[Rfam]
RNA sequence: AAGGAGACUGAUAAAUAAGACAGGGACGAUGUAGAGCAUGGAUGGAGUUCCCAACAGAAAAGUUGAGCUGUUGUGGCUCCACUCAUGCACUGCCUCUUCCCUGGCUUUGACUCCUCUGGAUUUU
Number, nucleotide and partner (000 for none) at each position: 001a000002a000003g000004g000005a000006g000007a000008c000009u000010g000011a000012u000013a000014a000015a000016u000017a107018a106019g105020a000021c103022a102023g101024g100025g099026a098027c000028g000029a095030u000031g093032u092033a091034g090035a000036g088037c087038a086039u085040g084041g083042a000043u000044g000045g079046a078047g000048u000049u000050c000051c000052c000053a000054a000055c000056a000057g000058a000059a000060a000061a000062g000063u000064u000065g000066a000067g000068c000069u000070g000071u000072u000073g000074u000075g000076g000077c000078u046079c045080c000081a000082c000083u041084c040085a039086u038087g037088c036089a000090c034091u033092g032093c031094c000095u029096c000097u000098u026099c025100c024101c023102u022103g021104g000105c019106u018107u017108u000109g000110a000111c000112u000113c000114c000115u000116c000117u000118g000119g000120a000121u000122u000123u000124u000
Description:
This 124-nucleotide RNA from Rosa chinensis belongs to the Rfam family "MIR408 microRNA precursor family". Rfam links the family to the GO terms RISC complex and miRNA-mediated post-transcriptional gene silencing. A reference for the family is Mica et al. (2009), "High throughput approaches reveal splicing of primary microRNA transcripts and tissue specific expression of mature microRNAs in Vitis vinifera", BMC Genomics. Pairs were carried over by alignment from the consensus structure, which was predicted with WAR. Lineage of the source: Eukaryota > Streptophyta > Mesangiospermae > Gunneridae > Rosa.